[Rfam]
Shown here is a 63-nucleotide RNA sequence from Actinomadura litoris, a member of the family "L17-Actino-Proteobacteria ribosomal protein leader". It is annotated as a cis-regulatory leader. It scores 58 bits against the family's covariance model.
RNA sequence: CGGCCGGGGGGACCUCCCCCGGCCGCGUCCGGCUGACAUCGGUACCUGGUACGGCCGAUGCAG
Numbered sequence: 001c002g003g004c005c006g007g008g009g010g011g012a013c014c015u016c017c018c019c020c021g022g023c024c025g026c027g028u029c030c031g032g033c034u035g036a037c038a039u040c041g042g043u044a045c046c047u048g049g050u051a052c053g054g055c056c057g058a059u060g061c062a063g
Base pairs, nucleotide, nucleotide: 001025002024003023004022005021006020007019008018009017033063034062035061037060038059039058040057041056042055043054